Record summary
This 100-nucleotide RNA from Pararobbsia silviterrae belongs to the Rfam family "ZMP/ZTP riboswitch aptamer (pfl RNA motif)".
RNA sequence: AAACCUCUGCGUAACUGGCGAUAGCGACUUUCCGGAGUCCGAGGUGGGCCACCACCGUGAAGCGUAGAGGCGUUUUCAGCCGUUCGCCUGGGCAGCCAUG
Numbered sequence: 001a002a003a004c005c006u007c008u009g010c011g012u013a014a015c016u017g018g019c020g021a022u023a024g025c026g027a028c029u030u031u032c033c034g035g036a037g038u039c040c041g042a043g044g045u046g047g048g049c050c051a052c053c054a055c056c057g058u059g060a061a062g063c064g065u066a067g068a069g070g071c072g073u074u075u076u077c078a079g080c081c082g083u084u085c086g087c088c089u090g091g092g093c094a095g096c097c098a099u100g
Stems, first nucleotide, its partner, number of pairs: 004070009015059001017088005044055004077095001079093003
The family's consensus secondary structure is taken from published work.